[Rfam]
RNA sequence: GCCUCUCUGCAAAUGCUGGUACGGACCCUGAUACGCUAAAGCUACAGGGCAGGCUGAACAGGAACCGUAUAAGAGGCUGUUCAGGGUGGCCAAGGCAGCACAUCAUGUCAAAGGCCGCAACCAACAAACCCUGAGCAGUAGAUACGGCCGGGAUCAGCAGAAAGAGGGAGGU
Number, nucleotide and partner (000 for none) at each position: 001g172002c171003c170004u169005c168006u000007c000008u000009g000010c164011a000012a000013a000014u159015g158016c157017u156018g155019g154020u152021a000022c150023g149024g148025a000026c000027c000028c000029u000030g000031a000032u000033a000034c000035g000036c000037u000038a000039a000040a000041g000042c000043u000044a000045c000046a000047g000048g000049g000050c000051a000052g000053g000054c000055u000056g000057a000058a000059c000060a000061g000062g000063a000064a000065c147066c146067g145068u144069a143070u142071a000072a000073g000074a000075g000076g139077c138078u137079g000080u135081u134082c133083a132084g131085g130086g129087u000088g116089g115090c114091c113092a000093a000094g109095g108096c107097a106098g000099c000100a000101c000102a000103u000104c000105a000106u097107g096108u095109c094110a000111a000112a000113g091114g090115c089116c088117g000118c000119a000120a000121c000122c000123a000124a000125c000126a000127a000128a000129c086130c085131c084132u083133g082134a081135g080136c000137a078138g077139u076140a000141g000142a070143u069144a068145c067146g066147g065148c024149c023150g022151g000152g020153a000154u019155c018156a017157g016158c015159a014160g000161a000162a000163a000164g010165a000166g000167g000168g005169a004170g003171g002172u001
A member of the RNA family "Group II catalytic intron D1-D4-3" from Phaeodactylibacter luteus, 172 nucleotides long. Taxonomically the source falls in Phaeodactylibacter (Bacteria, Pseudomonadati, Saprospirales, Haliscomenobacteraceae).